Shown here is a 59-nucleotide sequence, a member of the family "Glutamine-II riboswitch aptamer".
Nucleotides: 059
Base pairs, nucleotide, nucleotide: 004049005048006047007046008045010025011024012023014021034059035058036057037056038055039054040053041052
Number, partner (000 for none) and nucleotide at each position: 001000a002000u003000a004049c005048g006047u007046u008045c009000a010025u011024c012023c013000u014021a015000g016000u017000u018000a019000u020000c021014u022000u023012g024011g025010a026000c027000g028000c029000a030000u031000g032000a033000a034059a035058u036057g037056g038055a039054a040053a041052u042000a043000g044000g045008g046007a047006a048005c049004g050000g051000g052041a053040u054039u055038u056037c057036c058035a059034u
It is one of the family's seed sequences.